[Rfam]
RNA sequence: CCGGCACCGGUUCACCUCGCGACGAGGACCCGGCGGCC
Numbered sequence: 001c002c003g004g005c006a007c008c009g010g011u012u013c014a015c016c017u018c019g020c021g022a023c024g025a026g027g028a029c030c031c032g033g034c035g036g037c038c
Stems, first nucleotide, its partner, number of pairs: 003038003007033004015027005
RNA: L31-Actinobacteria ribosomal protein leader
Organism: Amycolatopsis taiwanensis